[Rfam]
RNA: nhaA-I RNA
Organism: Rubritepida sp.
RNA sequence: GGGUGUUGGGUCAUUGUCGACCGGCAGGGCUUAACGUUGGUCGGGCCGCCAGCG
Numbered sequence: 001g002g003g004u005g006u007u008g009g010g011u012c013a014u015u016g017u018c019g020a021c022c023g024g025c026a027g028g029g030c031u032u033a034a035c036g037u038u039g040g041u042c043g044g045g046c047c048g049c050c051a052g053c054g
Stems, first nucleotide, its partner, number of pairs: 005025004010021003035054007